RNA sequence: CGCCCGGCCCUGUCACUCGGAUCGUCCGGCACGUUCCUGCCGGUGAAGGGAAAGCUCA
Numbered sequence: 001c002g003c004c005c006g007g008c009c010c011u012g013u014c015a016c017u018c019g020g021a022u023c024g025u026c027c028g029g030c031a032c033g034u035u036c037c038u039g040c041c042g043g044u045g046a047a048g049g050g051a052a053a054g055c056u057c058a
Stems, first nucleotide, its partner, number of pairs: 009050003013046003026043006
The record is a 58-nucleotide RNA from Motilibacter peucedani, which matches "msiK RNA" in Rfam. The organism belongs to Motilibacter, within Bacteria. The match comes from Rfam's covariance-model search (51 bits).